[Rfam]
A member of the RNA family "Glycine riboswitch aptamer" from Caenimonas aquaedulcis, 92 nucleotides long. Lineage of the source: Bacteria > Pseudomonadota > Betaproteobacteria > Burkholderiales > Caenimonas.
Nucleotides: 092
Base pairs, nucleotide, nucleotide: 006087009084010083011082012081013080020035021034023032037071038070039069040067041066044065045064046063049059050058
Number, partner (000 for none) and nucleotide at each position: 001000u002000c003000c004000a005000a006087c007000c008000c009084g010083u011082c012081a013080g014000g015000a016000g017000a018000g019000a020035g021034c022000c023032c024000c025000c026000g027000c028000a029000a030000g031000g032023g033000a034021g035020c036000c037071g038070c039069c040067g041066a042000a043000g044065g045064c046063g047000c048000a049059g050058g051000c052000g053000c054000a055000u056000a057000g058050c059049c060000g061000a062000a063046c064045g065044c066041u067040c068000a069039g070038g071037c072000a073000a074000a075000c076000a077000g078000g079000a080013c081012u082011g083010a084009c085000a086000a087006g088000g089000c090000g091000c092000u